[Rfam]
The family of this 438-nucleotide sequence from Litoribrevibacter albus is "cspA thermoregulator". A reference for the family is Giuliodori et al. (2010), "The cspA mRNA is a thermosensor that modulates translation of the cold-shock protein CspA", Mol Cell. By type it is an RNA thermoregulator. NCBI's taxonomy places the organism under Bacteria, Gammaproteobacteria, Oceanospirillales, Oceanospirillaceae, Litoribrevibacter. Rfam links the family to the GO terms response to temperature stimulus and regulation of translation.
RNA sequence: CUUAGGUUGGUUAACCCUAUACAUUGAUCGCAGCUAGAAAGUAAGCCUCUCGUUUUUAAUCUCCAUUUCGUUGCAUUUCUGAAGUUCAUCGUCCUGUAGUUUUUAAAUUAAGUCUGUUUUUCCCGCUAUUCAUGCCUCUCAUAAGGGCACAUUUAUAAUUUAUCUACAGGAUAAUAUCUUAUGUCUAAUACAGUUACUGGUACCGUUAAGUGGUUUAAUGAGUCAAAAGGUUUUGGUUUUAUUUCUCAAGAAUCAGGCCCUGACGUUUUUGCUCAUUUCAGCGCAAUCGUAAGCUCUGGCUUCAAAACAUUGGCUGAAGGCCAAAAAGUUGAGUUCACUGUGACUCAGGGUCAAAAAGGCCCUCAAGCAGAGAACAUCAUGGCGCUAUAAUCGCCAGCGAGAUCUCUUAAAAAAGCAAGCUUAGGCUUGCUUUUUUUG
Numbered sequence: 001c002u003u004a005g006g007u008u009g010g011u012u013a014a015c016c017c018u019a020u021a022c023a024u025u026g027a028u029c030g031c032a033g034c035u036a037g038a039a040a041g042u043a044a045g046c047c048u049c050u051c052g053u054u055u056u057u058a059a060u061c062u063c064c065a066u067u068u069c070g071u072u073g074c075a076u077u078u079c080u081g082a083a084g085u086u087c088a089u090c091g092u093c094c095u096g097u098a099g100u101u102u103u104u105a106a107a108u109u110a111a112g113u114c115u116g117u118u119u120u121u122c123c124c125g126c127u128a129u130u131c132a133u134g135c136c137u138c139u140c141a142u143a144a145g146g147g148c149a150c151a152u153u154u155a156u157a158a159u160u161u162a163u164c165u166a167c168a169g170g171a172u173a174a175u176a177u178c179u180u181a182u183g184u185c186u187a188a189u190a191c192a193g194u195u196a197c198u199g200g201u202a203c204c205g206u207u208a209a210g211u212g213g214u215u216u217a218a219u220g221a222g223u224c225a226a227a228a229g230g231u232u233u234u235g236g237u238u239u240u241a242u243u244u245c246u247c248a249a250g251a252a253u254c255a256g257g258c259c260c261u262g263a264c265g266u267u268u269u270u271g272c273u274c275a276u277u278u279c280a281g282c283g284c285a286a287u288c289g290u291a292a293g294c295u296c297u298g299g300c301u302u303c304a305a306a307a308c309a310u311u312g313g314c315u316g317a318a319g320g321c322c323a324a325a326a327a328g329u330u331g332a333g334u335u336c337a338c339u340g341u342g343a344c345u346c347a348g349g350g351u352c353a354a355a356a357a358g359g360c361c362c363u364c365a366a367g368c369a370g371a372g373a374a375c376a377u378c379a380u381g382g383c384g385c386u387a388u389a390a391u392c393g394c395c396a397g398c399g400a401g402a403u404c405u406c407u408u409a410a411a412a413a414a415g416c417a418a419g420c421u422u423a424g425g426c427u428u429g430c431u432u433u434u435u436u437u438g
Stems, first nucleotide, its partner, number of pairs: 004018003008014001024249002030246001032244002040240002044238004048230003057225001059223002064220004070216001073214002079183001082180003092171007105121003134148003185200003189196001254340002257338001262270002273331001275329004283322001284320001288313001291310001297306001347363003351359002366386002368382001370380001372378001391401001392399002410435011